The family of this 52-nucleotide sequence from Pontibaca methylaminivorans is "ffh sRNA". The source organism's lineage runs through Bacteria, Pseudomonadota, Rhodobacterales, Roseobacteraceae and Pontibaca.

RNA sequence: CGUGCCCGGGAUCGCCCUCCACCAGCGCGUCGCGCCCGUGGGGGCGUUCGCG
Numbered sequence: 001c002g003u004g005c006c007c008g009g010g011a012u013c014g015c016c017c018u019c020c021a022c023c024a025g026c027g028c029g030u031c032g033c034g035c036c037c038g039u040g041g042g043g044g045c046g047u048u049c050g051c052g
Stems, first nucleotide, its partner, number of pairs: 016044007025035004
The literature on the family includes a 2009 paper in BMC Genomics by Meyer et al., "Identification of candidate structured RNAs in the marine organism 'Candidatus Pelagibacter ubique'".
It scores 57 bits against the family's covariance model.